[Rfam]
RNA: mir-9229 microRNA precursor family
Organism: Myotis myotis
RNA sequence: GAGACACCUUUAUGGGGCAGGACUUGCUUCAGUGGGGCUUUGGUGCCCACUGAGUCUGCUCCUUGAAUGUGUCACU
Numbered sequence: 001g002a003g004a005c006a007c008c009u010u011u012a013u014g015g016g017g018c019a020g021g022a023c024u025u026g027c028u029u030c031a032g033u034g035g036g037g038c039u040u041u042g043g044u045g046c047c048c049a050c051u052g053a054g055u056c057u058g059c060u061c062c063u064u065g066a067a068u069g070u071g072u073c074a075c076u
Stems, first nucleotide, its partner, number of pairs: 001075001003073005009067004014062006021056003029053008037044002